[Rfam]
RNA sequence: UCAAAUGCGUAGAUUGAUCAGCAGUAGGUAGCUUGUGGAUGCUUUCAGAGAGCCGGUGGAGGGUGCGAACCGGUACCUGCAGGUUAGUGAAUUACGGUCAGGAGCAGUAAAUAGGAACAUACAGCAACAGAAGCUGUAUUAGUAGUAUUUACCGAUUAAACCCCGUUACAGGUUCUUGAGUGAAAAUAGUUAGCCGUACACGGAUGAUUUUCCUAUAGAUGUACGUAACUGCUGUUUUAAUUAGGGUGGUACCGCGAGUCAAGUCUUCUCGUCCCUUGU
Numbered sequence: 001u002c003a004a005a006u007g008c009g010u011a012g013a014u015u016g017a018u019c020a021g022c023a024g025u026a027g028g029u030a031g032c033u034u035g036u037g038g039a040u041g042c043u044u045u046c047a048g049a050g051a052g053c054c055g056g057u058g059g060a061g062g063g064u065g066c067g068a069a070c071c072g073g074u075a076c077c078u079g080c081a082g083g084u085u086a087g088u089g090a091a092u093u094a095c096g097g098u099c100a101g102g103a104g105c106a107g108u109a110a111a112u113a114g115g116a117a118c119a120u121a122c123a124g125c126a127a128c129a130g131a132a133g134c135u136g137u138a139u140u141a142g143u144a145g146u147a148u149u150u151a152c153c154g155a156u157u158a159a160a161c162c163c164c165g166u167u168a169c170a171g172g173u174u175c176u177u178g179a180g181u182g183a184a185a186a187u188a189g190u191u192a193g194c195c196g197u198a199c200a201c202g203g204a205u206g207a208u209u210u211u212c213c214u215a216u217a218g219a220u221g222u223a224c225g226u227a228a229c230u231g232c233u234g235u236u237u238u239a240a241u242u243a244g245g246g247u248g249g250u251a252c253c254g255c256g257a258g259u260c261a262a263g264u265c266u267u268c269u270c271g272u273c274c275c276u277u278g279u
Stems, first nucleotide, its partner, number of pairs: 007105002015100004027088001029086004041077001043075001052074006108151006153165002183238007243276004254272005
Rfam assigns this 279-nucleotide RNA sequence from Paenibacillus silvestris to the family "T-box leader". NCBI's taxonomy places the organism under Bacteria, Bacillota, Caryophanales, Paenibacillaceae, Paenibacillus. It scores 114 bits against the family's covariance model.